This 36-nucleotide RNA sequence from Microtus ochrogaster belongs to the Rfam family "XIST RNA A repeat". On this family, see Duszczyk et al., RNA 2011: "The Xist RNA A-repeat comprises a novel AUCG tetraloop fold and a platform for multimerization". The base pairs follow the family's consensus structure, which was predicted with CMfinder.

RNA sequence: UUGCCCAUCUGGGCUGAGGAUACCUGCUCCUUUUUU
Numbered sequence: 001u002u003g004c005c006c007a008u009c010u011g012g013g014c015u016g017a018g019g020a021u022a023c024c025u026g027c028u029c030c031u032u033u034u035u036u
Base pairs, nucleotide, nucleotide: 003014004013005012006011018025019024